[Rfam]
RNA sequence: ACUCUUUUUUUCUUUGAGAAUUCAUCAUAUAUUAAAAGUGUUGGUUUUACCAGCUAUGGUAAUAAACGGUAUAUGGAAUAAGCGUAGUGGACCCGGGGGCAGUACCCGGCAUCUCCACCAUAAAUAUAUGGGGAUGAAACAGGCUCGACACGCGUAGUAAAGAUAUAUUUUUUACUCGGCAUUGUACCGCCGUUAUCGGGCUUUAUUUUACAAAUGCCAACGAUAAUUUCGAGGCACACGCUGUUGCGGCCUAAUAAGCCAAUGUAACAAGCGCGGCUGAGGGUGCGCCGGGCAACAGAAGCCCCUCACU
Number, nucleotide and partner (000 for none) at each position: 001a000002c000003u000004c000005u000006u000007u000008u000009u000010u000011u000012c000013u000014u000015u000016g000017a000018g000019a000020a000021u000022u000023c000024a000025u000026c000027a000028u000029a000030u000031a000032u000033u000034a000035a000036a000037a000038g000039u000040g054041u053042u052043g051044g050045u000046u000047u000048u000049a000050c044051c043052a042053g041054c040055u000056a000057u000058g176059g175060u174061a173062a172063u000064a000065a000066a000067c000068g169069g168070u167071a166072u165073a164074u163075g000076g000077a000078a000079u000080a000081a000082g000083c154084g153085u152086a000087g151088u150089g149090g000091a000092c000093c109094c108095g107096g106097g105098g000099g000100c000101a000102g000103u000104a000105c097106c096107c095108g094109g093110c136111a135112u134113c133114u132115c131116c130117a000118c000119c000120a000121u000122a000123a000124a000125u000126a000127u000128a000129u000130g116131g115132g114133g113134a112135u111136g110137a000138a000139a000140c000141a000142g000143g000144c000145u000146c000147g000148a000149c089150a088151c087152g085153c084154g083155u000156a000157g000158u000159a000160a000161a000162g000163a074164u073165a072166u071167a070168u069169u068170u000171u000172u062173u061174a060175c059176u058177c192178g191179g190180c189181a000182u000183u000184g201185u000186a000187c199188c198189g180190c179191c178192g177193u000194u000195a000196u000197c000198g188199g187200g000201c184202u000203u000204u000205a000206u000207u000208u000209u000210a000211c000212a000213a000214a000215u000216g000217c000218c000219a000220a000221c000222g000223a000224u000225a000226a000227u000228u000229u000230c000231g000232a000233g000234g000235c000236a000237c000238a000239c000240g000241c000242u000243g000244u000245u000246g000247c000248g000249g000250c000251c000252u000253a000254a000255u000256a000257a000258g000259c000260c000261a000262a000263u000264g000265u000266a000267a000268c000269a000270a000271g000272c000273g000274c290275g289276g288277c287278u000279g000280a000281g306282g305283g304284u000285g302286c000287g277288c276289c275290g274291g000292g000293c000294a000295a000296c000297a000298g000299a000300a000301g000302c285303c000304c283305c282306u281307c000308a000309c000310u000
Shown here is a 310-nucleotide RNA from Commensalibacter papalotli, a member of the family "Alphaproteobacteria transfer-messenger RNA".
Pairs were carried over by alignment from the consensus structure, which is taken from published work.
Its family is annotated with RNA catabolic process in the Gene Ontology.
It scores 256 bits against the family's covariance model.
Lineage of the source: Bacteria > Pseudomonadati > Alphaproteobacteria > Acetobacterales > Commensalibacter.